[Rfam]
RNA: mir-7386 microRNA precursor family
RNA sequence: AGUUGGAUAAGGCACUCUAUUUUGUAGAUUCUUCCAAAAUAAGGACCUUAUCCAUAGGG
Numbered sequence: 001a002g003u004u005g006g007a008u009a010a011g012g013c014a015c016u017c018u019a020u021u022u023u024g025u026a027g028a029u030u031c032u033u034c035c036a037a038a039a040u041a042a043g044g045a046c047c048u049u050a051u052c053c054a055u056a057g058g059g
Base pairs, nucleotide, nucleotide: 004054005053006052007051008050009049010048011047012046018041019040020039021038022037023036024035